[Rfam]
RNA sequence: CCAGCCGGCCGGGUGGCCGCGACCGCGAGAGCCGAAAGGCUGCGGUCGAGGAAAGUCCGGGCUCCAUGGAAACACGGUGCCGGCCAACUGCCGGCGGGGGCGACCCCAGGGAAAGUGCCACAGAGAGCAGACCGCCUCGCCUUAGGGCGCGGCAAGGGUGAAAGGGUGGGGUAAGAGCCCACCGCGCGACCGGCAACGGGAGCGGCAUGGCAAACCCCACCGGGAGCAAAACCGAAUAGGGACGACGCGCGGGGAAACCCGCAGGCUGUUUCCGGCCCAGUCGUCCGGGUGGGUUGCGUCAGGCGUCCAGCAAUGGCCGCCGAAGAUGAAUGGCCACCGCGUCGCGCGGUCCGCAAGGAUCACGCGGCCAUACAGAACCCGGCUUACAGGCCGGCUGGCGCU
Numbered sequence: 001c002c003a004g005c006c007g008g009c010c011g012g013g014u015g016g017c018c019g020c021g022a023c024c025g026c027g028a029g030a031g032c033c034g035a036a037a038g039g040c041u042g043c044g045g046u047c048g049a050g051g052a053a054a055g056u057c058c059g060g061g062c063u064c065c066a067u068g069g070a071a072a073c074a075c076g077g078u079g080c081c082g083g084c085c086a087a088c089u090g091c092c093g094g095c096g097g098g099g100g101c102g103a104c105c106c107c108a109g110g111g112a113a114a115g116u117g118c119c120a121c122a123g124a125g126a127g128c129a130g131a132c133c134g135c136c137u138c139g140c141c142u143u144a145g146g147g148c149g150c151g152g153c154a155a156g157g158g159u160g161a162a163a164g165g166g167u168g169g170g171g172u173a174a175g176a177g178c179c180c181a182c183c184g185c186g187c188g189a190c191c192g193g194c195a196a197c198g199g200g201a202g203c204g205g206c207a208u209g210g211c212a213a214a215c216c217c218c219a220c221c222g223g224g225a226g227c228a229a230a231a232c233c234g235a236a237u238a239g240g241g242a243c244g245a246c247g248c249g250c251g252g253g254g255a256a257a258c259c260c261g262c263a264g265g266c267u268g269u270u271u272c273c274g275g276c277c278c279a280g281u282c283g284u285c286c287g288g289g290u291g292g293g294u295u296g297c298g299u300c301a302g303g304c305g306u307c308c309a310g311c312a313a314u315g316g317c318c319g320c321c322g323a324a325g326a327u328g329a330a331u332g333g334c335c336a337c338c339g340c341g342u343c344g345c346g347c348g349g350u351c352c353g354c355a356a357g358g359a360u361c362a363c364g365c366g367g368c369c370a371u372a373c374a375g376a377a378c379c380c381g382g383c384u385u386a387c388a389g390g391c392c393g394g395c396u397g398g399c400g401c402u
Stems, first nucleotide, its partner, number of pairs: 001398010011387001012338007020048008053385003057382005062226004071271002075222005080094005095109001096107004110217002115215002117211003132157002134153003138149004165183006184206001185204003190199003230295004240286006264277004302321004307316003